[Rfam]
RNA sequence: AAUAGAAGAAUGACAAAUCAGAUUUUUCCUCCUGAUUUUUAGCAUUUUUAGUUGGAUUUAAAAUUUUAUCAAGAGGGAAAGACUAAAAAUCAGGAGGAAAAUUUUGAUUGGUCAUUUUCUUAUU
Numbered sequence: 001a002a003u004a005g006a007a008g009a010a011u012g013a014c015a016a017a018u019c020a021g022a023u024u025u026u027u028c029c030u031c032c033u034g035a036u037u038u039u040u041a042g043c044a045u046u047u048u049u050a051g052u053u054g055g056a057u058u059u060a061a062a063a064u065u066u067u068a069u070c071a072a073g074a075g076g077g078a079a080a081g082a083c084u085a086a087a088a089a090u091c092a093g094g095a096g097g098a099a100a101a102u103u104u105u106g107a108u109u110g111g112u113c114a115u116u117u118u119c120u121u122a123u124u
Stems, first nucleotide, its partner, number of pairs: 001124005007118008016109007024101004029096011041084002045080004
Dot-bracket structure: (((((.((((((((.(((((((.((((.(((((((((((.((..((((............................))))..)).))))))))))).)))).))))))).)))))))).)))))
A member of the RNA family "MIR7504 microRNA precursor family" from Gossypium australe, 124 nucleotides long.
The organism belongs to Gossypium, within Eukaryota.
Gene Ontology terms of the family: RISC complex and miRNA-mediated post-transcriptional gene silencing.
A search with the family's covariance model found it, with a score of 96 bits.